[Rfam]
RNA sequence: CUGUAGUGCAUUGUAGUUGCAUUGCAUGUCACUGCAGACCCUGUGCAAUGUUUCUUCAGUGCAUUAUAG
Dot-bracket structure: ((((.((((((((.((..(.(((((((...............))))))).)..)).))))))).)))))
Numbered sequence: 001c002u003g004u005a006g007u008g009c010a011u012u013g014u015a016g017u018u019g020c021a022u023u024g025c026a027u028g029u030c031a032c033u034g035c036a037g038a039c040c041c042u043g044u045g046c047a048a049u050g051u052u053u054c055u056u057c058a059g060u061g062c063a064u065u066a067u068a069g
Stems, first nucleotide, its partner, number of pairs: 001069004006065001007063007015055002019051001021049007